[Rfam]
RNA sequence: ACCAUCCUUUUCUUGGGGUUGCACUACUGUCUAAUGAGUGCAUAAUGAGGGCAGUAUUGCUAACGCCUAUACAAUGCACCUGCAUCAACUAGAACUUUGCUUUACCUUGGUACAAUUUUUGGAAAA
Number, nucleotide and partner (000 for none) at each position: 001a000002c000003c000004a000005u000006c018007c017008u016009u015010u000011u000012c000013u000014u000015g009016g008017g007018g006019u000020u000021g060022c059023a058024c000025u000026a055027c054028u053029g052030u051031c050032u049033a000034a000035u000036g000037a000038g046039u045040g000041c000042a000043u000044a000045a039046u038047g000048a000049g032050g031051g030052c029053a028054g027055u026056a000057u000058u023059g022060c021061u000062a000063a000064c000065g000066c000067c000068u000069a000070u000071a000072c000073a000074a000075u000076g000077c000078a000079c000080c000081u000082g113083c000084a111085u110086c109087a108088a000089c000090u104091a103092g102093a101094a000095c099096u000097u000098u000099g095100c000101u093102u092103u091104a090105c000106c000107u000108u087109g086110g085111u084112a000113c082114a000115a000116u000117u000118u000119u000120u000121g000122g000123a000124a000125a000126a000